[Rfam]
A member of the RNA family "mir-2774 microRNA precursor family" from Bombyx mori, 71 nucleotides long. It scores 53 bits against the family's covariance model. A reference for the family is Liu et al. (2010), "MicroRNAs of Bombyx mori identified by Solexa sequencing", BMC Genomics. The family's consensus secondary structure was predicted with RNAalifold. The source organism's lineage runs through Eukaryota, Eumetazoa, Protostomia, Ditrysia and Bombyx. Its family is annotated with miRNA-mediated post-transcriptional gene silencing and RISC complex in the Gene Ontology.
RNA sequence: AUAAUUGACAGAUACUCUACGGUCUACCGAGCAAAUAUCACCCGCUCGGUGGAAGAUCUUCCCUUUGUCGU
Numbered sequence: 001a002u003a004a005u006u007g008a009c010a011g012a013u014a015c016u017c018u019a020c021g022g023u024c025u026a027c028c029g030a031g032c033a034a035a036u037a038u039c040a041c042c043c044g045c046u047c048g049g050u051g052g053a054a055g056a057u058c059u060u061c062c063c064u065u066u067g068u069c070g071u
Stems, first nucleotide, its partner, number of pairs: 004068002011061002016056002023053010